[Rfam]
A member of the RNA family "Small nucleolar RNA Z152/R70/R12/" from Cicer arietinum, 106 nucleotides long. The family's RNA type in Rfam is C/D-box small nucleolar RNA. A reference for the family is Barneche et al. (2001), "Identification of 66 box C/D snoRNAs in Arabidopsis thaliana: extensive gene duplications generated multiple isoforms predicting new ribosomal RNA 2'-O-methylation sites", J Mol Biol.
RNA sequence: GGUGCAAUGAUGAGAUGGAAACCCAGUGUUUUUGGCCAGUGGACAUAACCAUUAGGUUUUGCCGCGAGCCUGUUUUAUAACGAAAUAUCUCCUUCCACUGAACACU
Numbered sequence: 001g002g003u004g005c006a007a008u009g010a011u012g013a014g015a016u017g018g019a020a021a022c023c024c025a026g027u028g029u030u031u032u033u034g035g036c037c038a039g040u041g042g043a044c045a046u047a048a049c050c051a052u053u054a055g056g057u058u059u060u061g062c063c064g065c066g067a068g069c070c071u072g073u074u075u076u077a078u079a080a081c082g083a084a085a086u087a088u089c090u091c092c093u094u095c096c097a098c099u100g101a102a103c104a105c106u
Stems, first nucleotide, its partner, number of pairs: 001106004